Shown here is a 113-nucleotide sequence, a member of the family "Hairpin ribozyme 1 from viruses-like metatranscriptomes".
RNA sequence: CAGCUGUGGUUGGAUGGUAAAGCCUUUAGUGGCACAUUCGGCUGAAGCUGGUGAGGGAAACAUAGUGUUGUGGCUAGAUAGUAUCUAGUUACCAUACUAGAAUAUUAACUCAC
Numbered sequence: 001c002a003g004c005u006g007u008g009g010u011u012g013g014a015u016g017g018u019a020a021a022g023c024c025u026u027u028a029g030u031g032g033c034a035c036a037u038u039c040g041g042c043u044g045a046a047g048c049u050g051g052u053g054a055g056g057g058a059a060a061c062a063u064a065g066u067g068u069u070g071u072g073g074c075u076a077g078a079u080a081g082u083a084u085c086u087a088g089u090u091a092c093c094a095u096a097c098u099a100g101a102a103u104a105u106u107a108a109c110u111c112a113c
Base pairs, nucleotide, nucleotide: 001050002049003048004047009042010041011040012039013038014037015036022033023032024031051113052112053111054110055109063099064098065097066096067095068094
The sequence is in the family's curated seed alignment. Pairs were carried over by alignment from the consensus structure, which is taken from published work. The literature on the family includes a 2021 paper in Nucleic Acids Res by Weinberg et al., "Identification of over 200-fold more hairpin ribozymes than previously known in diverse circular RNAs".